RNA sequence: GCUGGGCUUGGUAGCAUGAGCUUGUGACCCAAGUGGGGGCAUUAAGAUGGUGGAACAGUUGGGCUUGCCUUAAAGGUUGGGUUGGGUUGCUAUCUACUGGCUUGCCUGUUCCAAGUGGUGAGUUGUAUGGUGGAGUCUCUGCGAAGGCGGAGGCUUCACUGUCCUUAGAUUGGAGGGCACUGCAUGAGGCUGGCUUCACAGAGCAGCGAUAACCUCCUCCUCUCUACGGUGGAAGGAUAAGGUGCAACCUCAGUCCACUAGUGCCUGAUGGGUUGCUUAGGUGAACCACCAUCUUU
Numbered sequence: 001g002c003u004g005g006g007c008u009u010g011g012u013a014g015c016a017u018g019a020g021c022u023u024g025u026g027a028c029c030c031a032a033g034u035g036g037g038g039g040c041a042u043u044a045a046g047a048u049g050g051u052g053g054a055a056c057a058g059u060u061g062g063g064c065u066u067g068c069c070u071u072a073a074a075g076g077u078u079g080g081g082u083u084g085g086g087u088u089g090c091u092a093u094c095u096a097c098u099g100g101c102u103u104g105c106c107u108g109u110u111c112c113a114a115g116u117g118g119u120g121a122g123u124u125g126u127a128u129g130g131u132g133g134a135g136u137c138u139c140u141g142c143g144a145a146g147g148c149g150g151a152g153g154c155u156u157c158a159c160u161g162u163c164c165u166u167a168g169a170u171u172g173g174a175g176g177g178c179a180c181u182g183c184a185u186g187a188g189g190c191u192g193g194c195u196u197c198a199c200a201g202a203g204c205a206g207c208g209a210u211a212a213c214c215u216c217c218u219c220c221u222c223u224c225u226a227c228g229g230u231g232g233a234a235g236g237a238u239a240a241g242g243u244g245c246a247a248c249c250u251c252a253g254u255c256c257a258c259u260a261g262u263g264c265c266u267g268a269u270g271g272g273u274u275g276c277u278u279a280g281g282u283g284a285a286c287c288a289c290c291a292u293c294u295u296u
Stems, first nucleotide, its partner, number of pairs: 001040003004023007028037003044295010056283002059280006069271002074266004079256008087247003091244002097242002106236002109234005115227004120222003125164001127162016172217005183208001185206001190201003
RNA: Plant signal recognition particle RNA
Organism: Ipomoea nil